[Rfam]
A member of the RNA family "MIR535 microRNA precursor family" from Ceratodon purpureus, 95 nucleotides long. On this family, see Zeng et al., Nucleic Acids Res 2010: "Conservation and divergence of microRNAs and their functions in Euphorbiaceous plants". Lineage of the source: Eukaryota > Streptophytina > Dicranidae > Pseudoditrichales > Ceratodon.
RNA sequence: AACAGUGGGUGACAACGAGAGAGAGCACGCUGGAAGGCGUCUAUGCAACAAGCAUGGAUGUGUUCUUGCGUGCCCUCUCCCGUCGUCACCGAUCU
Numbered sequence: 001a002a003c004a005g006u007g008g009g010u011g012a013c014a015a016c017g018a019g020a021g022a023g024a025g026c027a028c029g030c031u032g033g034a035a036g037g038c039g040u041c042u043a044u045g046c047a048a049c050a051a052g053c054a055u056g057g058a059u060g061u062g063u064u065c066u067u068g069c070g071u072g073c074c075c076u077c078u079c080c081c082g083u084c085g086u087c088a089c090c091g092a093u094c095u
Stems, first nucleotide, its partner, number of pairs: 010088004016082002020078002023075001025073006032066003